The family of this 150-nucleotide sequence from Castor canadensis is "U12 minor spliceosomal RNA".
[Rfam]
RNA sequence: AUACCUUAAACUUAUAAGUAAGGAAAAUUAUGACUGGUGUGACACCUGAAAUUCUCACUGCUAAUGCGAAACGAACUUUUGAGCAGGUAAAGGUUUCCCCUAAGGUGACUCACCUACUUUGUGGGAUGCCUGGAUGUAGUGAUCUGCCCA
Numbered sequence: 001a002u003a004c005c006u007u008a009a010a011c012u013u014a015u016a017a018g019u020a021a022g023g024a025a026a027a028u029u030a031u032g033a034c035u036g037g038u039g040u041g042a043c044a045c046c047u048g049a050a051a052u053u054c055u056c057a058c059u060g061c062u063a064a065u066g067c068g069a070a071a072c073g074a075a076c077u078u079u080u081g082a083g084c085a086g087g088u089a090a091a092g093g094u095u096u097c098c099c100c101u102a103a104g105g106u107g108a109c110u111c112a113c114c115u116a117c118u119u120u121g122u123g124g125g126a127u128g129c130c131u132g133g134a135u136g137u138a139g140u141g142a143u144c145u146g147c148c149c150a
Stems, first nucleotide, its partner, number of pairs: 004023005032053002035050001039046001055069002058066001086148003091145005097139001101133001103131005109125005
By type it is a spliceosomal small nuclear RNA.
The match comes from Rfam's covariance-model search (88 bits).
The family is grouped with related families in Rfam's "U2 clan".
The base pairs follow the family's consensus structure.
On this family, see Otake et al., Mol Cell 2002: "The divergent U12-type spliceosome is required for pre-mRNA splicing and is essential for development in Drosophila".